[Rfam]
RNA sequence: GCACUGGUUUGACACCGAGCUUGUGAUCCUAAGUCGAAAGAUAUGGAAGCAAUGCCUGCAACUUGAUUGCACAAUGGUAUGGUUAGAAAUGAUUAUGCCACUCGUUUUAGAAAGGUGUCGUAAGUUAAACUCA
Numbered sequence: 001g002c003a004c005u006g007g008u009u010u011g012a013c014a015c016c017g018a019g020c021u022u023g024u025g026a027u028c029c030u031a032a033g034u035c036g037a038a039a040g041a042u043a044u045g046g047a048a049g050c051a052a053u054g055c056c057u058g059c060a061a062c063u064u065g066a067u068u069g070c071a072c073a074a075u076g077g078u079a080u081g082g083u084u085a086g087a088a089a090u091g092a093u094u095a096u097g098c099c100a101c102u103c104g105u106u107u108u109a110g111a112a113a114g115g116u117g118u119c120g121u122a123a124g125u126u127a128a129a130c131u132c133a
Stems, first nucleotide, its partner, number of pairs: 011119006019055002022052001027047003033042003057071005075100011101110002

Source information
Molybdenum/Tungsten riboswitch aptamer (Moco RNA motif): a 133-nucleotide sequence from Avibacterium volantium. A reference for the family is Weinberg et al. (2007), "Identification of 22 candidate structured RNAs in bacteria using the CMfinder comparative genomics pipeline", Nucleic Acids Res. A search with the family's covariance model found it, with a score of 73 bits. The base pairs follow the family's consensus structure, which is taken from published work. NCBI's taxonomy places the organism under Bacteria, Pseudomonadota, Pasteurellales, Pasteurellaceae, Avibacterium.